[Rfam]
RNA sequence: ACCGGUCUCCGGUAGUGGUUCUCAGGCUUUCUCUUGACCUGGGCACUUCGAUCGAAGACCGGC
Dot-bracket structure: .((((((..((((...(((.((((((.(.......).)))))).)))...))))..)))))).

A member of the RNA family "Actino-pnp RNA" from Actinoplanes regularis, 63 nucleotides long.
The source organism's lineage runs through Bacteria, Actinomycetota, Actinomycetes, Micromonosporales and Actinoplanes.
The match comes from Rfam's covariance-model search (51 bits).
The family's RNA type in Rfam is cis-regulatory element.